[Rfam]
RNA sequence: GAGUGGUAGGAUGCGGGACCGUGACACUGUCUGAGAGACGGUAUGAUUCUCACAGUGAACCGGUCUCUUUUCCUACCCCUCA
Numbered sequence: 001g002a003g004u005g006g007u008a009g010g011a012u013g014c015g016g017g018a019c020c021g022u023g024a025c026a027c028u029g030u031c032u033g034a035g036a037g038a039c040g041g042u043a044u045g046a047u048u049c050u051c052a053c054a055g056u057g058a059a060c061c062g063g064u065c066u067c068u069u070u071u072c073c074u075a076c077c078c079c080u081c082a
Stems, first nucleotide, its partner, number of pairs: 006076005015067007025057006033051003
Rfam assigns this 82-nucleotide RNA from Electrophorus electricus to the family "mir-128 microRNA precursor family". The organism belongs to Electrophorus, within Eukaryota. The base pairs follow the family's consensus structure, which was predicted with RNAalifold.